[Rfam]
RNA sequence: GUGCCAUGAUGUCAGCUGUCAACACAUCAUUCUGAAGGAGAAUUGUGUGGAGAUCUGGGGCUGAGCACC
Numbered sequence: 001g002u003g004c005c006a007u008g009a010u011g012u013c014a015g016c017u018g019u020c021a022a023c024a025c026a027u028c029a030u031u032c033u034g035a036a037g038g039a040g041a042a043u044u045g046u047g048u049g050g051a052g053a054u055c056u057g058g059g060g061c062u063g064a065g066c067a068c069c
Base pairs, nucleotide, nucleotide: 001068002067003066004065
RNA: Small nucleolar RNA SNORD63
Organism: Chaetops frenatus